[Rfam]
Shown here is a 48-nucleotide RNA from Pseudooceanicola spongiae, a member of the family "Guanidine-II riboswitch aptamer (mini-ykkC)". Rfam 15.1 lists 1,589 matches to the family in 1,229 species. The organism belongs to Pseudooceanicola, within Bacteria. About the family: Simpler in structure and has fewer highly conserved nucleotide positions than the ykkC-yxkD leader. Despite this each of its two stem-loop structures directly bind free guanidine. Therefore, mini-ykkC RNA motif represents a distinct class of guanidine-sensing RNAs. Its crystal structure was also determined. A search with the family's covariance model found it, with a score of 44 bits.
Nucleotides: 048
Stems, first nucleotide, its partner, number of pairs: 001020003005016004035048005
Number, partner (000 for none) and nucleotide at each position: 001020g002019g003018g004000c005016g006015a007014g008013g009000a010000c011000g012000a013008c014007c015006u016005c017000c018003c019002c020001c021000a022000u023000c024000a025000g026000g027000g028000c029000a030000g031000c032000a033000c034000a035048c036047c037046g038045g039044g040000a041000c042000g043000a044039c045038c046037c047036g048035g